[Rfam]
Nucleotides: 170
Stems, first nucleotide, its partner, number of pairs: 001016002004013003028170001030168002035163001041156005046150005062145006073137003078132006085113004091106004
Number, partner (000 for none) and nucleotide at each position: 001016c002015c003000a004013a005012c006011c007000g008000u009000g010000a011006g012005g013004u014000a015002g016001g017000g018000u019000c020000u021000g022000a023000a024000g025000g026000a027000a028170g029000c030168c031167g032000g033000a034000g035163g036000c037000a038000a039000a040000a041156c042155c043154g044153c045152g046150g047149c048148c049147u050146g051000a052000u053000g054000a055000a056000c057000a058000a059000g060000a061000a062145c063144c064143c065142c066141a067140u068000a069000c070000g071000a072000g073137g074136c075135u076000a077000g078132a079131c080130c081129g082128u083127u084000c085113g086112g087111a088110u089000g090000a091106g092105c093104u094103g095000g096000c097000g098000u099000a100000a101000c102000a103094c104093a105092g106091c107000u108000a109000a110088a111087u112086c113085c114000c115000a116000g117000g118000c119000u120000g121000c122000c123000a124000a125000a126000g127083g128082a129081c130080g131079g132078u133000a134000g135075a136074g137073u138000a139000a140067a141066u142065g143064g144063g145062g146050c147049a148048g149047g150046c151000g152045u153044g154043c155042g156041g157000g158000g159000a160000a161000a162000a163035u164000c165000a166000g167031c168030g169000u170028u